[Rfam]
RNA sequence: GGCGAAACCGGCUCUUGAAAAACCACCCCCCCGCCCCCAUAAUUGAAAGCAUGGUUGUAAUUCCGGCAAUCUGGAGGCGUUCUGGACAGGGGUUCGAUUCCCCUCACCUCCACCCAAGGGCAUUCCGCUGAGUGUUUUUGGAUGGGGGUGUACUGGUCUCGACAGGGCGGACAAAGGUGCGCAGGCAACUCGUCAGGCGAUCGACGUUAAUGAAGCAAAUCCAUAAUUGCCAAUGAUGAGCAAUUCGCUAUUGCCGCCUAAAAACGGUUAGCCGGGGCUGCUAGAGCCUUGUUACCAAAGAUAGCCGGCGGGGACUUCGGUCCCCGUCGUCA
Numbered sequence: 001g002g003c004g005a006a007a008c009c010g011g012c013u014c015u016u017g018a019a020a021a022a023c024c025a026c027c028c029c030c031c032c033g034c035c036c037c038c039a040u041a042a043u044u045g046a047a048a049g050c051a052u053g054g055u056u057g058u059a060a061u062u063c064c065g066g067c068a069a070u071c072u073g074g075a076g077g078c079g080u081u082c083u084g085g086a087c088a089g090g091g092g093u094u095c096g097a098u099u100c101c102c103c104u105c106a107c108c109u110c111c112a113c114c115c116a117a118g119g120g121c122a123u124u125c126c127g128c129u130g131a132g133u134g135u136u137u138u139u140g141g142a143u144g145g146g147g148g149u150g151u152a153c154u155g156g157u158c159u160c161g162a163c164a165g166g167g168c169g170g171a172c173a174a175a176g177g178u179g180c181g182c183a184g185g186c187a188a189c190u191c192g193u194c195a196g197g198c199g200a201u202c203g204a205c206g207u208u209a210a211u212g213a214a215g216c217a218a219a220u221c222c223a224u225a226a227u228u229g230c231c232a233a234u235g236a237u238g239a240g241c242a243a244u245u246c247g248c249u250a251u252u253g254c255c256g257c258c259u260a261a262a263a264a265c266g267g268u269u270a271g272c273c274g275g276g277g278c279u280g281c282u283a284g285a286g287c288c289u290u291g292u293u294a295c296c297a298a299a300g301a302u303a304g305c306c307g308g309c310g311g312g313g314a315c316u317u318c319g320g321u322c323c324c325c326g327u328c329g330u331c332a
Stems, first nucleotide, its partner, number of pairs: 053190005063185002066182002069178004078169007088104005105150007191206004275289004280305004310327001312325002
Background
Rfam assigns this 332-nucleotide RNA sequence from Dechloromonas aromatica to the family "Betaproteobacteria transfer-messenger RNA". Bacterial tmRNA, also known as 10Sa RNA or SsrA, is named for its dual tRNA and mRNA-like properties. Its role is to liberate the mRNA from a stalled ribosome. To accomplish this part of the tmRNA is used as a reading frame that ends in a translation stop signal. Rfam's curators put it in the seed alignment.